[Rfam]
RNA: Small Cajal body specific RNA 11
RNA sequence: CUGUAAAAGAAAUCAGCAUUUUCACCUGUGCUCAGUAUAACAGGGAAGUCUGGCAGGACACACAGCAACCUCACUCUCAGUUUAGGAGGGCCGUCCUGAGUAUAGGGCUGGCUCUUAAAGGCACGAGAGGACAAU
Numbered sequence: 001c002u003g004u005a006a007a008a009g010a011a012a013u014c015a016g017c018a019u020u021u022u023c024a025c026c027u028g029u030g031c032u033c034a035g036u037a038u039a040a041c042a043g044g045g046a047a048g049u050c051u052g053g054c055a056g057g058a059c060a061c062a063c064a065g066c067a068a069c070c071u072c073a074c075u076c077u078c079a080g081u082u083u084a085g086g087a088g089g090g091c092c093g094u095c096c097u098g099a100g101u102a103u104a105g106g107g108c109u110g111g112c113u114c115u116u117a118a119a120g121g122c123a124c125g126a127g128a129g130g131a132c133a134a135u
Base pairs, nucleotide, nucleotide: 001052021048022047025044026043027042028041029040074129075128076127077126078125080122081121082120083119086116087115088114089113090112091111092110093108094107095106096105097104098103